[Rfam]
RNA sequence: ACCGGGUUGCGUGGCGGCAACUUGUGACAGCAAGCUUCUGGCUGGGUAGAGUUCUUCAAGGGGUAUGUCACUGUAGUCAGGGAUCUAUCCACGCCAUGUGGAGGGGUAGCCCAUCCCAAACCAGGAGUAAACAUUGGGCAGUAUCCGGAUGGAUCGCUGUCCGAGGUUUCUAAGGAAGUGUGCAACGCCUCAGGCUGGAUAACAGAGCAGGGAAAAGCACUCGCUCUUGGUAGUGGGAGGAACACGGCCCUGAAUGGCGAUGGUCUCUAACCCCAGGUACUGGUGUGCUUCGAAGAGAAACUCGA
Numbered sequence: 001a002c003c004g005g006g007u008u009g010c011g012u013g014g015c016g017g018c019a020a021c022u023u024g025u026g027a028c029a030g031c032a033a034g035c036u037u038c039u040g041g042c043u044g045g046g047u048a049g050a051g052u053u054c055u056u057c058a059a060g061g062g063g064u065a066u067g068u069c070a071c072u073g074u075a076g077u078c079a080g081g082g083a084u085c086u087a088u089c090c091a092c093g094c095c096a097u098g099u100g101g102a103g104g105g106g107u108a109g110c111c112c113a114u115c116c117c118a119a120a121c122c123a124g125g126a127g128u129a130a131a132c133a134u135u136g137g138g139c140a141g142u143a144u145c146c147g148g149a150u151g152g153a154u155c156g157c158u159g160u161c162c163g164a165g166g167u168u169u170c171u172a173a174g175g176a177a178g179u180g181u182g183c184a185a186c187g188c189c190u191c192a193g194g195c196u197g198g199a200u201a202a203c204a205g206a207g208c209a210g211g212g213a214a215a216a217g218c219a220c221u222c223g224c225u226c227u228u229g230g231u232a233g234u235g236g237g238a239g240g241a242a243c244a245c246g247g248c249c250c251u252g253a254a255u256g257g258c259g260a261u262g263g264u265c266u267c268u269a270a271c272c273c274c275a276g277g278u279a280c281u282g283g284u285g286u287g288c289u290u291c292g293a294a295g296a297g298a299a300a301c302u303c304g305a
Stems, first nucleotide, its partner, number of pairs: 001047003004023007028044003049303005055297003060291006067280002071276003076271002079268005085263005093258005099252001103251005109245001111240002114238005120231009129169004134164009143154004170174001177221005188212003195205003
A member of the RNA family "Metazoan signal recognition particle RNA" from Saprolegnia diclina, 305 nucleotides long. The family is grouped with related families in Rfam's "SRP clan". Rfam describes the family as follows. The signal recognition particle (SRP) is a universally conserved ribonucleoprotein. It is involved in the co-translational targeting of proteins to membranes. The eukaryotic SRP consists of a 300-nucleotide 7S RNA and six proteins: SRPs 72, 68, 54, 19, 14, and 9. Archaeal SRP consists of a 7S RNA and homologues of the eukaryotic SRP19 and SRP54 proteins. Eukaryotic and archaeal 7S RNAs have very similar secondary structures, as represented by this family. Eight helical elements fold into the Alu and S domains, separated by a long linker region. The Alu domain is thought to mediate the peptide chain elongation retardation function of the SRP. The universally conserved helix which interacts with the SRP54 M domain mediates signal sequence recognition. In eukaryotes and archaea, the SRP19-helix 6 complex is thought to be involved in SRP assembly and stabilises helix 8 for SRP54 binding. The Signal Recognition Particle Database (SRPDB) provides compilations of SRP components, with phylogenetic data and structural illustrations. Many sequences below the threshold for this family are clearly closely related, but are most likely to be SRP RNA derived pseudogenes. The human genome in particular is known to contain a large amount of SRP RNA related sequence, including Alu repeats. While the threshold of this family is set high so as to minimise the number of hits to such regions, it is likely that some remain. By type it is a non-coding RNA gene. The source organism's lineage runs through Eukaryota, Saprolegniomycetes, Saprolegniales, Saprolegnia and Saprolegnia diclina. Its family is annotated with SRP-dependent cotranslational protein targeting to membrane, signal sequence recognition and signal recognition particle, endoplasmic reticulum targeting in the Gene Ontology. The match comes from Rfam's covariance-model search (138 bits). The literature on the family includes a 2003 paper in Nucleic Acids Res by Rosenblad et al., "SRPDB: Signal Recognition Particle Database". The base pairs follow the family's consensus structure, which is taken from published work.